[Rfam]
RNA sequence: UGGACCAGUGAAGACAAAGUGUUUAUGAACAAAGAAUGGUGAUUAGUCCAGUUCUGCGCACAAUCCUGAGGUCCAUU
Numbered sequence: 001u002g003g004a005c006c007a008g009u010g011a012a013g014a015c016a017a018a019g020u021g022u023u024u025a026u027g028a029a030c031a032a033a034g035a036a037u038g039g040u041g042a043u044u045a046g047u048c049c050a051g052u053u054c055u056g057c058g059c060a061c062a063a064u065c066c067u068g069a070g071g072u073c074c075a076u077u
Base pairs, nucleotide, nucleotide: 001075002074003073004072005071006070
Shown here is a 77-nucleotide sequence from Suricata suricatta, a member of the family "Small nucleolar RNA SNORD112". For this family Rfam cites "Identification of tandemly-repeated C/D snoRNA genes at the imprinted human 14q32 domain reminiscent of those at the Prader-Willi/Angelman syndrome region" (Cavaille et al., Hum Mol Genet, 2002). Pairs were carried over by alignment from the consensus structure, which was predicted with WAR. Rfam 15.1 lists 191 matches to the family in 119 species. Its family is annotated with nucleolus and RNA processing in the Gene Ontology. By type it is a C/D-box small nucleolar RNA.